[Rfam]
RNA sequence: ACUAUAAAUGAUGAAUGACACAGAGACUUAAUACUGAAAUUUGGUAUGAUUUCCUGUGUAG
Numbered sequence: 001a002c003u004a005u006a007a008a009u010g011a012u013g014a015a016u017g018a019c020a021c022a023g024a025g026a027c028u029u030a031a032u033a034c035u036g037a038a039a040u041u042u043g044g045u046a047u048g049a050u051u052u053c054c055u056g057u058g059u060a061g
Stems, first nucleotide, its partner, number of pairs: 002061005